[Rfam]
Overview
Shown here is a 62-nucleotide sequence from Ferrimicrobium acidiphilum, a member of the family "Fluoride riboswitch aptamer (crcB RNA motif)". The match comes from Rfam's covariance-model search (46 bits).
Nucleotides: 062
Base pairs, nucleotide, nucleotide: 010025011024012023013022016053017052018051019050020049021048033043034042035041
Number, partner (000 for none) and nucleotide at each position: 001000a002000g003000u004000c005000c006000a007000a008000a009000g010025g011024g012023u013022g014000a015000u016053g017052g018051a019050g020049u021048c022013c023012a024011c025010c026000u027000u028000g029000c030000a031000a032000c033043g034042c035041c036000g037000a038000a039000u040000u041035g042034g043033c044000u045000g046000a047000u048021g049020a050019c051018u052017c053016c054000u055000c056000u057000g058000a059000u060000a061000a062000g
The family's consensus secondary structure is taken from published work.